RNA sequence: CCCCCUGAAACUAGUCGCAGCUAGAUCUCGAUCGAGAUCGAACAUGAGGUAGAGCACCGAUUGAGUGUUUAGGGAAAGAAAUUUCUCGGCAUUCUGUCAAACUCCGAAAUUGUGUUCAUUGUAGACGUCGGGAGCAAGGCCAUCCGGGGUAAGCUUGAUGGCCAUAAGGGAAACAACCCAGACUAAAGUUAAGGUCCCUAAAUUUCGGUCAAGUGUAAUAUGAAAUGGCGUCGGCAGUCCAAGACAACCGGGAGGUGGGCUUAGAAGCAGCCAUCCUUUAAAGAUAGCGUAACAGCUCACCGGUCGAGAUUGUGGGCCCAGAAAAUGGACGGGGCUAAACCGAGUACCGAUACUUUAGAAUGCAGAAAUGUAAUUUGGUAAGGGGGCGUGGUGCAUGGGCAGAAGUGGGGCCGUGAGGUCCUGUGGACCGUGUACCAACGAGGAU
Numbered sequence: 001c002c003c004c005c006u007g008a009a010a011c012u013a014g015u016c017g018c019a020g021c022u023a024g025a026u027c028u029c030g031a032u033c034g035a036g037a038u039c040g041a042a043c044a045u046g047a048g049g050u051a052g053a054g055c056a057c058c059g060a061u062u063g064a065g066u067g068u069u070u071a072g073g074g075a076a077a078g079a080a081a082u083u084u085c086u087c088g089g090c091a092u093u094c095u096g097u098c099a100a101a102c103u104c105c106g107a108a109a110u111u112g113u114g115u116u117c118a119u120u121g122u123a124g125a126c127g128u129c130g131g132g133a134g135c136a137a138g139g140c141c142a143u144c145c146g147g148g149g150u151a152a153g154c155u156u157g158a159u160g161g162c163c164a165u166a167a168g169g170g171a172a173a174c175a176a177c178c179c180a181g182a183c184u185a186a187a188g189u190u191a192a193g194g195u196c197c198c199u200a201a202a203u204u205u206c207g208g209u210c211a212a213g214u215g216u217a218a219u220a221u222g223a224a225a226u227g228g229c230g231u232c233g234g235c236a237g238u239c240c241a242a243g244a245c246a247a248c249c250g251g252g253a254g255g256u257g258g259g260c261u262u263a264g265a266a267g268c269a270g271c272c273a274u275c276c277u278u279u280a281a282a283g284a285u286a287g288c289g290u291a292a293c294a295g296c297u298c299a300c301c302g303g304u305c306g307a308g309a310u311u312g313u314g315g316g317c318c319c320a321g322a323a324a325a326u327g328g329a330c331g332g333g334g335c336u337a338a339a340c341c342g343a344g345u346a347c348c349g350a351u352a353c354u355u356u357a358g359a360a361u362g363c364a365g366a367a368a369u370g371u372a373a374u375u376u377g378g379u380a381a382g383g384g385g386g387c388g389u390g391g392u393g394c395a396u397g398g399g400c401a402g403a404a405g406u407g408g409g410g411c412c413g414u415g416a417g418g419u420c421c422u423g424u425g426g427a428c429c430g431u432g433u434a435c436c437a438a439c440g441a442g443g444a445u
Stems, first nucleotide, its partner, number of pairs: 001386006011024005026134001027132006036120003040117008052105001053103002059098003063094006072087006138163007146156002168179003183358007193348003202345001204344006226320003230317003234313006247304005253277003258272003278282001283298001287296002359376002361372004387440001389437010405424008
RNA: Archaeal large subunit ribosomal RNA, nucleotides 889 to 1333
Organism: Candidatus Methanoplasma termitum